RNA sequence: UUGAUUUAAAUCAUUGUGGAUUUACACUUUGAAAAUUGAACCAACACAAAGUGGUAGAAUAUACAUUGAUUUUAUCCAA
Numbered sequence: 001u002u003g004a005u006u007u008a009a010a011u012c013a014u015u016g017u018g019g020a021u022u023u024a025c026a027c028u029u030u031g032a033a034a035a036u037u038g039a040a041c042c043a044a045c046a047c048a049a050a051g052u053g054g055u056a057g058a059a060u061a062u063a064c065a066u067u068g069a070u071u072u073u074a075u076c077c078a079a
Stems, first nucleotide, its partner, number of pairs: 001079003006074001008072006015065004022057003025053007